[Rfam]
RNA sequence: CCUCGGCCGACGGGGAAACCGUUACCAUUACUGAGUUUAGUAAUGGUGACGGUUCUGCCGCUGGCCGGCGC
Numbered sequence: 001c002c003u004c005g006g007c008c009g010a011c012g013g014g015g016a017a018a019c020c021g022u023u024a025c026c027a028u029u030a031c032u033g034a035g036u037u038u039a040g041u042a043a044u045g046g047u048g049a050c051g052g053u054u055c056u057g058c059c060g061c062u063g064g065c066c067g068g069c070g071c
Stems, first nucleotide, its partner, number of pairs: 007064003011060003017054004022049012
The family of this 71-nucleotide sequence from Nothocercus julius is "mir-451 microRNA precursor family". For this family Rfam cites "Role of MicroRNA miR-27a and miR-451 in the regulation of MDR1/P-glycoprotein expression in human cancer cells" (Zhu et al., Biochem Pharmacol, 2008). Lineage of the source: Eukaryota > Opisthokonta > Craniata > Sauropsida > Nothocercus. It scores 71 bits against the family's covariance model. Gene Ontology terms of the family: miRNA-mediated post-transcriptional gene silencing and RISC complex.